mir-802 microRNA precursor family: a 94-nucleotide sequence from Carlito syrichta. Rfam 15.1 lists 133 matches to the family in 133 species. Pairs were carried over by alignment from the consensus structure, which was predicted with RNAalifold. For this family Rfam cites "Mouse microRNA profiles determined with a new and sensitive cloning method" (Takada et al., Nucleic Acids Res, 2006).
[Rfam]
RNA sequence: GUUCUAUUAUUUGCAGUCAGUAACAAAGAUUCAUCCCUGUGUCUAUCAUGUAACAAAGAGAAUCUUUGCUACUUAGUGUAAUUAAUAGGUGAAU
Number, nucleotide and partner (000 for none) at each position: 001g000002u000003u000004c088005u087006a086007u085008u084009a083010u000011u081012u080013g079014c078015a077016g000017u075018c000019a073020g072021u071022a000023a000024c068025a067026a066027a065028g064029a063030u062031u061032c060033a000034u059035c058036c000037c000038u055039g054040u053041g051042u050043c000044u000045a000046u000047c000048a000049u000050g042051u041052a000053a040054c039055a038056a000057a000058g035059a034060g032061a031062a030063u029064c028065u027066u026067u025068g024069c000070u000071a021072c020073u019074u000075a017076g000077u015078g014079u013080a012081a011082u000083u009084a008085a007086u006087a005088g004089g000090u000091g000092a000093a000094u000